The family of this 130-nucleotide sequence from a Verrucomicrobiaceae bacterium is "Y RNA-like". For this family Rfam cites "An RNA degradation machine sculpted by Ro autoantigen and noncoding RNA" (Chen et al., Cell, 2013). The family's consensus secondary structure is taken from published work. From the family's description: In Deinococcus radiodurans Rsr is tethered via Y RNA to the exoribonuclease PNPase and channels single-stranded RNA into the PNPase cavity. Rsr and Y RNA enhance degradation of structured RNAs by PNPase. This role could be conserved, as Rsr and ncRNAs called YrlA and YrlB (Y RNA like) also associate with PNPase in an evolutionary distant bacterium Salmonella Typhimurium. By type it is a small RNA.
RNA sequence: CCGGCGAAUGCCGGUGGAACUACAUGAGGUAUUUGUCGCGGGUUCGAGUCCCGCCGGAGUCCUUCGAAAGACUCCGUAGCUCAGUGGUAGAGCAGUACAAUAUGUUUCACCAAAACCUUGUCGCCGCUUU
Numbered sequence: 001c002c003g004g005c006g007a008a009u010g011c012c013g014g015u016g017g018a019a020c021u022a023c024a025u026g027a028g029g030u031a032u033u034u035g036u037c038g039c040g041g042g043u044u045c046g047a048g049u050c051c052c053g054c055c056g057g058a059g060u061c062c063u064u065c066g067a068a069a070g071a072c073u074c075c076g077u078a079g080c081u082c083a084g085u086g087g088u089a090g091a092g093c094a095g096u097a098c099a100a101u102a103u104g105u106u107u108c109a110c111c112a113a114a115a116c117c118u119u120g121u122c123g124c125c126g127c128u129u130u
Stems, first nucleotide, its partner, number of pairs: 002126006013111007031096003038054005045087001055076006079093004

It scores 83 bits against the family's covariance model.
Taxonomically the source falls in Verrucomicrobiaceae (Bacteria, Pseudomonadati, Verrucomicrobiia, Verrucomicrobiales).